[Rfam]
RNA sequence: AGCUAAGCAAUGAGCACAGAGCAAACUAUUCUUUGGCCUUUUACUAAAGAAUACUGUUUGCUCUUUGCAUAAAUUGGCAUACGCCUAUUUUUGGUGAGUUUCUUCCAAAAAGACGA
Numbered sequence: 001a002g003c004u005a006a007g008c009a010a011u012g013a014g015c016a017c018a019g020a021g022c023a024a025a026c027u028a029u030u031c032u033u034u035g036g037c038c039u040u041u042u043a044c045u046a047a048a049g050a051a052u053a054c055u056g057u058u059u060g061c062u063c064u065u066u067g068c069a070u071a072a073a074u075u076g077g078c079a080u081a082c083g084c085c086u087a088u089u090u091u092u093g094g095u096g097a098g099u100u101u102c103u104u105c106c107a108a109a110a111a112g113a114c115g116a
Base pairs, nucleotide, nucleotide: 003077004076005075006074008067009066010065012063013062014061015060016059018057027053028052029051030050031049032048033047034046095116098114099113100112101111
Dot-bracket structure: ..((((.(((.(((((.(........((((((((...........))))))))...).))))).)))......)))).................(..((((.........)))).)
Shown here is a 116-nucleotide RNA sequence from Artemisia annua, a member of the family "U5 spliceosomal RNA". Gene Ontology terms of the family: spliceosomal tri-snRNP complex assembly and U5 snRNP. Taxonomically the source falls in Artemisia (Eukaryota, Streptophytina, Tracheophyta, Mesangiospermae). It scores 72 bits against the family's covariance model. From the family's description: U5 RNA is a component of both types of known spliceosome. By type it is a spliceosomal small nuclear RNA. For this family Rfam cites "Domain analysis of human U5 RNA. Cap trimethylation, protein binding, and spliceosome assembly" (Hinz et al., J Biol Chem, 1996).